[Rfam]
RNA sequence: ACCUGCCCGGCGUGCUCGGCGUGCCCGGGUGACAGACACACACCGCGCCACGGAAGAAUUAGGCGUAUUAGGGCGUU
Numbered sequence: 001a002c003c004u005g006c007c008c009g010g011c012g013u014g015c016u017c018g019g020c021g022u023g024c025c026c027g028g029g030u031g032a033c034a035g036a037c038a039c040a041c042a043c044c045g046c047g048c049c050a051c052g053g054a055a056g057a058a059u060u061a062g063g064c065g066u067a068u069u070a071g072g073g074c075g076u077u
Base pairs, nucleotide, nucleotide: 004031005030006029007028008027009026010025011023012022013021014020015019045066046065047064048063049062050060